RNA sequence: UAAUCACCGGCUCAUCACGUCGCGUAUCCGGCUGAUAACGAAAUACCGUCCUGCUCAGCGACAAUGUCCUGCAGGCCUGGCGUAAGCUCAUGGCAAACUGCGCGGUCAGAUAGCUGACCAGCUCACGCUUUAUCGCUGGUUUU
Number, nucleotide and partner (000 for none) at each position: 001u000002a000003a000004u000005c000006a000007c000008c000009g000010g000011c000012u000013c000014a000015u000016c000017a000018c000019g000020u000021c000022g000023c000024g000025u112026a111027u110028c109029c000030g107031g106032c000033u000034g000035a000036u000037a000038a000039c000040g000041a000042a000043a000044u000045a000046c000047c000048g077049u000050c075051c074052u073053g072054c071055u000056c000057a000058g067059c066060g065061a000062c000063a000064a000065u060066g059067u058068c000069c000070u000071g054072c053073a052074g051075g050076c000077c048078u000079g000080g103081c102082g101083u100084a000085a000086g000087c000088u000089c000090a000091u000092g000093g000094c000095a000096a000097a000098c000099u000100g083101c082102g081103c080104g000105g000106u031107c030108a000109g028110a027111u026112a025113g000114c000115u000116g141117a140118c139119c000120a137121g136122c135123u000124c000125a000126c000127g000128c000129u000130u000131u000132a000133u000134c000135g122136c121137u120138g000139g118140u117141u116142u000143u000
A member of the RNA family "isrN Hfq binding RNA" from Escherichia coli, 143 nucleotides long. By type it is a small RNA. A reference for the family is Padalon-Brauch et al. (2008), "Small RNAs encoded within genetic islands of Salmonella typhimurium show host-induced expression and role in virulence", Nucleic Acids Res. Rfam 15.1 lists 141 matches to the family in 98 species.